[Rfam]
RNA sequence: UCCAAACCCGGUGAUGGGGUACCACCUUGAACCGCCAGUGCCUUUGGGGCGCUGCGCUGAUGACUCCUACGCCUAC
Numbered sequence: 001u002c003c004a005a006a007c008c009c010g011g012u013g014a015u016g017g018g019g020u021a022c023c024a025c026c027u028u029g030a031a032c033c034g035c036c037a038g039u040g041c042c043u044u045u046g047g048g049g050c051g052c053u054g055c056g057c058u059g060a061u062g063a064c065u066c067c068u069a070c071g072c073c074u075a076c
Stems, first nucleotide, its partner, number of pairs: 010026004016067005034057002
Dot-bracket structure: .........[[[[..(((((..]]]].......((....................)).....))))).........

A member of the RNA family "Fluoride riboswitch aptamer (crcB RNA motif)" from Hymenobacter sedentarius, 76 nucleotides long.
Lineage of the source: Bacteria > Pseudomonadati > Bacteroidota > Hymenobacteraceae > Hymenobacter.
The match comes from Rfam's covariance-model search (44 bits).
Pairs were carried over by alignment from the consensus structure, which is taken from published work.
Its family is annotated with positive regulation of gene expression and response to fluoride in the Gene Ontology.